[Rfam]
RNA sequence: GAUCAGUGAUGGAAACAGCCAAAACUGAGCAUCAAAAGACCAUCCAGUCUACCUGAUGCAUGUUCUCCAUAGUUCUGGGA
Numbered sequence: 001g002a003u004c005a006g007u008g009a010u011g012g013a014a015a016c017a018g019c020c021a022a023a024a025c026u027g028a029g030c031a032u033c034a035a036a037a038g039a040c041c042a043u044c045c046a047g048u049c050u051a052c053c054u055g056a057u058g059c060a061u062g063u064u065c066u067c068c069a070u071a072g073u074u075c076u077g078g079g080a
Stems, first nucleotide, its partner, number of pairs: 029059005037050004

Small nucleolar RNA U2-19: an 80-nucleotide RNA sequence from Molossus molossus. Gene Ontology terms of the family: RNA processing and nucleolus. The literature on the family includes a 2004 paper in Curr Biol by Tycowski et al., "Guide RNAs with 5' Caps and Novel Box C/D snoRNA-like Domains for Modification of snRNAs in Metazoa". By type it is a C/D-box small nucleolar RNA. NCBI's taxonomy places the organism under Eukaryota, Opisthokonta, Deuterostomia, Craniata, Molossus.